RNA sequence: UUCAUCUCAUUUCUCUUCAGAUUUAUAAAUCUUCUGCUUUUUACUAAAGAUUUCCAUGGAGAGGAACAUUUAUGAAGAUGUGGUUUUGUCAGUGGGCCUGGGGACCAGUG
Numbered sequence: 001u002u003c004a005u006c007u008c009a010u011u012u013c014u015c016u017u018c019a020g021a022u023u024u025a026u027a028a029a030u031c032u033u034c035u036g037c038u039u040u041u042u043a044c045u046a047a048a049g050a051u052u053u054c055c056a057u058g059g060a061g062a063g064g065a066a067c068a069u070u071u072a073u074g075a076a077g078a079u080g081u082g083g084u085u086u087u088g089u090c091a092g093u094g095g096g097c098c099u100g101g102g103g104a105c106c107a108g109u110g
Base pairs, nucleotide, nucleotide: 003077005075006074010066011065012064013063014062015061016060017059018058019057027053028052029051030050031049032048033047090110091109093107094106095105
The family of this 110-nucleotide sequence from Pantherophis guttatus is "U5 spliceosomal RNA". The family's consensus secondary structure is taken from published work. It scores 42 bits against the family's covariance model. U5 RNA is a component of both types of known spliceosome. NCBI's taxonomy places the organism under Eukaryota, Sauropsida, Episquamata, Colubroidea, Pantherophis. It is annotated as a spliceosomal small nuclear RNA.